[Rfam]
RNA sequence: UGGAGGAACAACCCCAGUGGCGAGGCCAGUUCUGGAAACCUGGAUUCAGUCCCCACAGGAACUCUGAAGCACUCCGCCUGCAGGGCCUGGAGAUCUGCUCAGCUCG
Numbered sequence: 001u002g003g004a005g006g007a008a009c010a011a012c013c014c015c016a017g018u019g020g021c022g023a024g025g026c027c028a029g030u031u032c033u034g035g036a037a038a039c040c041u042g043g044a045u046u047c048a049g050u051c052c053c054c055a056c057a058g059g060a061a062c063u064c065u066g067a068a069g070c071a072c073u074c075c076g077c078c079u080g081c082a083g084g085g086c087c088u089g090g091a092g093a094u095c096u097g098c099u100c101a102g103c104u105c106g
Stems, first nucleotide, its partner, number of pairs: 002098001004096003009089002012085003019078004024073002029070003033066004039059004
A member of the RNA family "mir-8834 microRNA precursor family" from Canis lupus, 106 nucleotides long. A search with the family's covariance model found it, with a score of 59 bits. Its family is annotated with RISC complex and miRNA-mediated post-transcriptional gene silencing in the Gene Ontology. The organism belongs to Canis lupus, within Eukaryota. The family has 2 seed sequences and 13,926 matches in Rfam 15.1.